[Rfam]
RNA sequence: UUGCCUAAUUUGACAGACCUGGAGCAGUUCCUGUCUGCUGCUGAGGUUUCCACUAGAGAUGCAAGAAAAAAGUGUCCUUGCACUUUCUAUCUCAUUGUGGCAGUCAAGAUUGAAUGGGGGAGUACAGGG
Numbered sequence: 001u002u003g004c005c006u007a008a009u010u011u012g013a014c015a016g017a018c019c020u021g022g023a024g025c026a027g028u029u030c031c032u033g034u035c036u037g038c039u040g041c042u043g044a045g046g047u048u049u050c051c052a053c054u055a056g057a058g059a060u061g062c063a064a065g066a067a068a069a070a071a072g073u074g075u076c077c078u079u080g081c082a083c084u085u086u087c088u089a090u091c092u093c094a095u096u097g098u099g100g101c102a103g104u105c106a107a108g109a110u111u112g113a114a115u116g117g118g119g120g121a122g123u124a125c126a127g128g129g
Stems, first nucleotide, its partner, number of pairs: 002063003006059001011052002015049005023039005075121005083112001086109003091103002093099001

The record is a 129-nucleotide RNA sequence from Odobenus rosmarus, which matches "Small nucleolar RNA SNORA31" in Rfam. The source organism's lineage runs through Eukaryota, Eumetazoa, Dipnotetrapodomorpha, Tetrapoda and Odobenus rosmarus. ACA31 (SNORA31) belongs to the H/ACA class of snoRNAs which are thought to guide the sites of modification of uridines to pseudouridines. ACA31 is predicted to guide the pseudouridylation of U3713 in 28S rRNA and U218 in 18S rRNA. This family includes the mouse homologue snoMBI-161. It is annotated as an H/ACA-box small nucleolar RNA. Pairs were carried over by alignment from the consensus structure, which was predicted with RNAalifold. Its family is annotated with RNA processing and nucleolus in the Gene Ontology.